[Rfam]
RNA sequence: AUACUUACCUGGCAGAGGAGACACCGUGAUCAGGCAGGUGGUUUUCCCAAGGUGAGGCUCAUCCCUUGCACUCCGAGUGUGCUGACCCUUGCGAUUUCCCCAAAUGUAGGAAACUGCAUCAUUUGUAGCAGGGGGCUGCAUUACUUUAAAAUGUGAUUUUUGAGGCCCUG
Numbered sequence: 001a002u003a004c005u006u007a008c009c010u011g012g013c014a015g016a017g018g019a020g021a022c023a024c025c026g027u028g029a030u031c032a033g034g035c036a037g038g039u040g041g042u043u044u045u046c047c048c049a050a051g052g053u054g055a056g057g058c059u060c061a062u063c064c065c066u067u068g069c070a071c072u073c074c075g076a077g078u079g080u081g082c083u084g085a086c087c088c089u090u091g092c093g094a095u096u097u098c099c100c101c102a103a104a105u106g107u108a109g110g111a112a113a114c115u116g117c118a119u120c121a122u123u124u125g126u127a128g129c130a131g132g133g134g135g136c137u138g139c140a141u142u143a144c145u146u147u148a149a150a151a152u153g154u155g156a157u158u159u160u161u162g163a164g165g166c167c168c169u170g
Base pairs, nucleotide, nucleotide: 012117013116014115015114017047018046019045020044021043023042024041025040026039027038049090050089051088052087054086056083057082058081060079061078062077064075095112096111097110099109132169133168134167135166136165137164
The record is a 170-nucleotide sequence from Ceuthmochares aereus, which matches "U1 spliceosomal RNA" in Rfam.
It scores 94 bits against the family's covariance model.
The family's consensus secondary structure is taken from published work.
A reference for the family is Katsamba et al. (2001), "Two functionally distinct steps mediate high affinity binding of U1A protein to U1 hairpin II RNA", J Biol Chem.
Rfam describes the family as follows. U1 is a small nuclear RNA (snRNA) component of the spliceosome (involved in pre-mRNA splicing).
Rfam links the family to the GO terms pre-mRNA 5'-splice site binding, mRNA 5'-splice site recognition and U1 snRNP.